[Rfam]
RNA sequence: CCUUUCCAUUCCAAGGGCUGCGGCUUGUUGUGGCCAUGGGGUCUCCCACUGCAUGCAAGAAGAACUUGGAAAGACACUGACAGCACAGGCCAGCAUAAUACCUGCAGCUGCCACUCACCUUUCCUAUAAUA
Numbered sequence: 001c002c003u004u005u006c007c008a009u010u011c012c013a014a015g016g017g018c019u020g021c022g023g024c025u026u027g028u029u030g031u032g033g034c035c036a037u038g039g040g041g042u043c044u045c046c047c048a049c050u051g052c053a054u055g056c057a058a059g060a061a062g063a064a065c066u067u068g069g070a071a072a073g074a075c076a077c078u079g080a081c082a083g084c085a086c087a088g089g090c091c092a093g094c095a096u097a098a099u100a101c102c103u104g105c106a107g108c109u110g111c112c113a114c115u116c117a118c119c120u121u122u123c124c125u126a127u128a129a130u131a
Stems, first nucleotide, its partner, number of pairs: 011039002016035007068124006083111002086104004
Shown here is a 131-nucleotide RNA sequence from Capra hircus, a member of the family "Small nucleolar RNA SNORA44". The family's consensus secondary structure was predicted with PFOLD. On this family, see Huttenhofer et al., EMBO J 2001: "RNomics: an experimental approach that identifies 201 candidates for novel, small, non-messenger RNAs in mouse". The organism belongs to Capra, within Eukaryota. Its family is annotated with nucleolus and RNA processing in the Gene Ontology. From the family's description: ACA44 is a member of the H/ACA class of snoRNA that guide the sites of modification of uridines to pseudouridines. A search with the family's covariance model found it, with a score of 125 bits. It is annotated as an H/ACA-box small nucleolar RNA. Rfam 15.1 lists 1,056 matches to the family in 599 species.